This 173-nucleotide RNA from Arthrobacter sp. CAU 1506 belongs to the Rfam family "c-di-AMP riboswitch aptamer (ydaO/yuaA leader)". A search with the family's covariance model found it, with a score of 58 bits. Rfam's curators write: This family represents a conserved RNA structure found upstream of the ydaO and yuaA genes in Bacillus subtilis and related genes in other bacteria. The source organism's lineage runs through Bacteria, Bacillati, Actinomycetes, Micrococcaceae and Arthrobacter. A reference for the family is Barrick et al. (2004), "New RNA motifs suggest an expanded scope for riboswitches in bacterial genetic control", Proc Natl Acad Sci U S A. The base pairs follow the family's consensus structure.
RNA sequence: UACGAUUUCGAGCUCUACGUCGAAGGCAGGGGCGGAGGAACCACUUACGGUGCAGGGGGCACCUCGGGGUGAAGUCCUCAGAGGCAGGCCGGCUUCCCACGGCCAUGCGGGCAGGACCGAGUGAACUCUCGCUCGAAUCCGACAGCUAACUUCGCAGGCGCAUGAGAGGAAUA
Numbered sequence: 001u002a003c004g005a006u007u008u009c010g011a012g013c014u015c016u017a018c019g020u021c022g023a024a025g026g027c028a029g030g031g032g033c034g035g036a037g038g039a040a041c042c043a044c045u046u047a048c049g050g051u052g053c054a055g056g057g058g059g060c061a062c063c064u065c066g067g068g069g070u071g072a073a074g075u076c077c078u079c080a081g082a083g084g085c086a087g088g089c090c091g092g093c094u095u096c097c098c099a100c101g102g103c104c105a106u107g108c109g110g111g112c113a114g115g116a117c118c119g120a121g122u123g124a125a126c127u128c129u130c131g132c133u134c135g136a137a138u139c140c141g142a143c144a145g146c147u148a149a150c151u152u153c154g155c156a157g158g159c160g161c162a163u164g165a166g167a168g169g170a171a172u173a
Stems, first nucleotide, its partner, number of pairs: 012159003018031001020029001032155006042066001067140003075116004119134004